The family of this 76-nucleotide RNA sequence from Alligator mississippiensis is "Mammalian CPEB3 ribozyme".
The base pairs follow the family's consensus structure, which is taken from published work.
A search with the family's covariance model found it, with a score of 54 bits.
RNA sequence: AAUUGCCAUUAUGGCCAUAGCAGAAGUGCUCACGUCACAGCCCUGUCAAGAUUCUAAUGAAUCUGCAAAUCCUGCU
Numbered sequence: 001a002a003u004u005g006c007c008a009u010u011a012u013g014g015c016c017a018u019a020g021c022a023g024a025a026g027u028g029c030u031c032a033c034g035u036c037a038c039a040g041c042c043c044u045g046u047c048a049a050g051a052u053u054c055u056a057a058u059g060a061a062u063c064u065g066c067a068a069a070u071c072c073u074g075c076u
Stems, first nucleotide, its partner, number of pairs: 013042003019076005025070001026038003047065001049064006
Dot-bracket structure: ............[[[...(((((.((((.......))).]]]....(.((((((....)))))))....).)))))